[Rfam]
RNA: FGF-2 internal ribosome entry site (IRES)
Organism: Myotis myotis
RNA sequence: UUGCGUGCUGCGGCCCGGCUAGCCCGGAGCGGGCAGGGGGCGGCGCGCCGGGAGGGCGGGGAGCGGCCGUGGGGGCGGUGGGUGCCGGGGGUGGAGAUGUAGAAGAUGUGACGCGCGGCCCGGCCGUGCCAGACGGUGGACGCCGUGCCCGCGGCUGCAACCGGACCCGGGGCUCUGCAGCGCAGGAAAGCGGCCCUCCCGAGAGUGGCGGCCGCGGAGACUCGGAGCCCCAAACCCCCGGUCCCGGGCCGCCCGGCUCCCCGCGCGCCAGGGCCGGCGGAGAGGGCAGGGCCGAGUGGCACGAGGCUGGGGGCCCGCGGCCGCGGCCGCGGGCCGCCGGGCGGGAGGCUGGGGGGCCGGGGCCGGGGCCGCGCCUCGGAGCGAGUCGGAGGCCGAGGCAGGGGCCGAGGGGCGGCGGCUCCCCGCGCGGCGCCAGGGGCUCGGGGACCCCGACAGGGCCCCGGUGGGGCCAUG
Numbered sequence: 001u002u003g004c005g006u007g008c009u010g011c012g013g014c015c016c017g018g019c020u021a022g023c024c025c026g027g028a029g030c031g032g033g034c035a036g037g038g039g040g041c042g043g044c045g046c047g048c049c050g051g052g053a054g055g056g057c058g059g060g061g062a063g064c065g066g067c068c069g070u071g072g073g074g075g076c077g078g079u080g081g082g083u084g085c086c087g088g089g090g091g092u093g094g095a096g097a098u099g100u101a102g103a104a105g106a107u108g109u110g111a112c113g114c115g116c117g118g119c120c121c122g123g124c125c126g127u128g129c130c131a132g133a134c135g136g137u138g139g140a141c142g143c144c145g146u147g148c149c150c151g152c153g154g155c156u157g158c159a160a161c162c163g164g165a166c167c168c169g170g171g172g173c174u175c176u177g178c179a180g181c182g183c184a185g186g187a188a189a190g191c192g193g194c195c196c197u198c199c200c201g202a203g204a205g206u207g208g209c210g211g212c213c214g215c216g217g218a219g220a221c222u223c224g225g226a227g228c229c230c231c232a233a234a235c236c237c238c239c240g241g242u243c244c245c246g247g248g249c250c251g252c253c254c255g256g257c258u259c260c261c262c263g264c265g266c267g268c269c270a271g272g273g274c275c276g277g278c279g280g281a282g283a284g285g286g287c288a289g290g291g292c293c294g295a296g297u298g299g300c301a302c303g304a305g306g307c308u309g310g311g312g313g314c315c316c317g318c319g320g321c322c323g324c325g326g327c328c329g330c331g332g333g334c335c336g337c338c339g340g341g342c343g344g345g346a347g348g349c350u351g352g353g354g355g356g357c358c359g360g361g362g363c364c365g366g367g368g369c370c371g372c373g374c375c376u377c378g379g380a381g382c383g384a385g386u387c388g389g390a391g392g393c394c395g396a397g398g399c400a401g402g403g404g405c406c407g408a409g410g411g412g413c414g415g416c417g418g419c420u421c422c423c424c425g426c427g428c429g430g431c432g433c434c435a436g437g438g439g440c441u442c443g444g445g446g447a448c449c450c451c452g453a454c455a456g457g458g459c460c461c462c463g464g465u466g467g468g469g470c471c472a473u474g
Base pairs, nucleotide, nucleotide: 011359012358013357014356015355016353024344025343026342039338040337041336042335043334044333046331047330048329064240065239066238069235070232071231072230073229083226084221119164120163123152124151126148127147128146129145170213171212173210175208176207177206178205185200186199188197190195245303246302248300249299250298251278252277254276255275256274257273375385376384377383378382395462397460398459399458406456425442427440428439443451444450445449